Streptococcus sRNA SpF36: a 52-nucleotide RNA sequence from Paenimyroides marinum. The family's RNA type in Rfam is small RNA.
RNA sequence: CGACAAAAAUCUGAUUGCAAGAAGUAAUCAGAUUUUUUUGUUUUAACACUUU
Numbered sequence: 001c002g003a004c005a006a007a008a009a010u011c012u013g014a015u016u017g018c019a020a021g022a023a024g025u026a027a028u029c030a031g032a033u034u035u036u037u038u039u040g041u042u043u044u045a046a047c048a049c050u051u052u
Stems, first nucleotide, its partner, number of pairs: 005036001007035012

Annotation: A search with the family's covariance model found it, with a score of 50 bits. The organism belongs to Paenimyroides, within Bacteria.